[Rfam]
RNA sequence: AACGUAGAUAGAGGUCGCAUCUUUCAAAAGUACGGUGACGGAUGUUUCAGGGACAGAAGAAGCCGCCGGAAAGGGGAAGAUGCCGAAGGGAUGAAGAACCUGAAGCUUUGUUCCUGGGCAUGGCGCGAACAGUGUCAUGACUGUCAUCGCAGGAUGGAGAGCUAUCUGAUUU
Numbered sequence: 001a002a003c004g005u006a007g008a009u010a011g012a013g014g015u016c017g018c019a020u021c022u023u024u025c026a027a028a029a030g031u032a033c034g035g036u037g038a039c040g041g042a043u044g045u046u047u048c049a050g051g052g053a054c055a056g057a058a059g060a061a062g063c064c065g066c067c068g069g070a071a072a073g074g075g076g077a078a079g080a081u082g083c084c085g086a087a088g089g090g091a092u093g094a095a096g097a098a099c100c101u102g103a104a105g106c107u108u109u110g111u112u113c114c115u116g117g118g119c120a121u122g123g124c125g126c127g128a129a130c131a132g133u134g135u136c137a138u139g140a141c142u143g144u145c146a147u148c149g150c151a152g153g154a155u156g157g158a159g160a161g162c163u164a165u166c167u168g169a170u171u172u
Stems, first nucleotide, its partner, number of pairs: 006167006017083009033068005039062001087115010116142002119139008144157005

Shown here is a 172-nucleotide RNA from Lachnoclostridium sp. An169, a member of the family "Lysine riboswitch aptamer". The organism belongs to Lachnoclostridium, within Bacteria. Pairs were carried over by alignment from the consensus structure, which is taken from published work.